[Rfam]
RNA sequence: GGGGUGUGCUCAGAGCAGGGGGUCUGAAGAAUGGCCCCGCUGUUUAUAACACACCCAACAGAAUCUGGUCAUUGUGUGAGGAGGGUUAGGAAUGUAUUGCCUUCCUCUGAGCAAAUGCCCUACACAU
Numbered sequence: 001g002g003g004g005u006g007u008g009c010u011c012a013g014a015g016c017a018g019g020g021g022g023u024c025u026g027a028a029g030a031a032u033g034g035c036c037c038c039g040c041u042g043u044u045u046a047u048a049a050c051a052c053a054c055c056c057a058a059c060a061g062a063a064u065c066u067g068g069u070c071a072u073u074g075u076g077u078g079a080g081g082a083g084g085g086u087u088a089g090g091a092a093u094g095u096a097u098u099g100c101c102u103u104c105c106u107c108u109g110a111g112c113a114a115a116u117g118c119c120c121u122a123c124a125c126a127u
Stems, first nucleotide, its partner, number of pairs: 002056007013045006020038002022035003068120001075113003081108001083102003088097001090095001
The record is a 127-nucleotide RNA from Cricetulus griseus, which matches "Small nucleolar RNA SNORA11" in Rfam. By type it is an H/ACA-box small nucleolar RNA. The organism belongs to Cricetulus, within Eukaryota. Rfam describes the family as follows. U107 (SNORA11) is a member of the H/ACA class of snoRNAs that guide the sites of modification of uridines to pseudouridines. This snoRNA was identified by RT-PCR from blood cells and its expression confirmed by Northern blot analysis. There is no predicted target for this guide snRNA. A reference for the family is Gu et al. (2005), "A novel experimental approach for systematic identification of box H/ACA snoRNAs from eukaryotes", Nucleic Acids Res. It scores 94 bits against the family's covariance model. The family has 35 seed sequences and 2,014 matches in Rfam 15.1.